A member of the RNA family "Pseudomonas sRNA P26" from Vibrio azureus, 58 nucleotides long.
RNA sequence: UUGCAUAGUUUCUUAGCCUAACGGCUAUUUGGCUGGUGGUUUUUUUAACCACCAGCCU
Numbered sequence: 001u002u003g004c005a006u007a008g009u010u011u012c013u014u015a016g017c018c019u020a021a022c023g024g025c026u027a028u029u030u031g032g033c034u035g036g037u038g039g040u041u042u043u044u045u046u047a048a049c050c051a052c053c054a055g056c057c058u
Base pairs, nucleotide, nucleotide: 014027015026016025017024018023031057032056033055034054035053036052037051038050039049040048
Lineage of the source: Bacteria > Pseudomonadati > Gammaproteobacteria > Vibrionales > Vibrio azureus. It scores 43 bits against the family's covariance model. This small RNA (sRNA) was computationally identified in the genome of the opportunistic pathogen Pseudomonas aeruginosa and its expression verified by northern blot analysis. P26 is conserved across many Gammaproteobacteria species and appears to be consistently located between the DNA directed RNA polymerase (beta subunit) and 50S ribosomal protein L7/L12 genes.